Shown here is an 83-nucleotide sequence from Bos taurus, a member of the family "mir-194 microRNA precursor family". It is one of the family's seed sequences. Pairs were carried over by alignment from the consensus structure, which was predicted with RNAalifold.
RNA sequence: CGGCGUCAUCGAUUGUAACAGCAACUCCAUGUGGACUGUGCGUCAAUUUCCAGUGGAGAUGCUGUUACUUUUGAUGGCUGCCA
Numbered sequence: 001c002g003g004c005g006u007c008a009u010c011g012a013u014u015g016u017a018a019c020a021g022c023a024a025c026u027c028c029a030u031g032u033g034g035a036c037u038g039u040g041c042g043u044c045a046a047u048u049u050c051c052a053g054u055g056g057a058g059a060u061g062c063u064g065u066u067a068c069u070u071u072u073g074a075u076g077g078c079u080g081c082c083a
Base pairs, nucleotide, nucleotide: 009074010073011072015068016067017066018065019064020063021062022061025058026057027056028055029054030053032052033051034050